[Rfam]
A member of the RNA family "mir-8799 microRNA precursor family" from Canis lupus, 91 nucleotides long.
RNA sequence: GGAGGGAGCGCCAGAUCUUGGACUGUGUCCCCAGCGCCUUUGGUUCCCGGGCCUGCACUGGUGGAAUCGCUCCUGGGCUGCACAGCCCCCU
Numbered sequence: 001g002g003a004g005g006g007a008g009c010g011c012c013a014g015a016u017c018u019u020g021g022a023c024u025g026u027g028u029c030c031c032c033a034g035c036g037c038c039u040u041u042g043g044u045u046c047c048c049g050g051g052c053c054u055g056c057a058c059u060g061g062u063g064g065a066a067u068c069g070c071u072c073c074u075g076g077g078c079u080g081c082a083c084a085g086c087c088c089c090c091u
Base pairs, nucleotide, nucleotide: 001091002090004088005087006086010083012080013079014078017076018075020073021072022071025070026069027068028065029064031063032060033059034058036056037055043052044051045050
Clan: mir-8791 microRNA precursor clan. A search with the family's covariance model found it, with a score of 53 bits.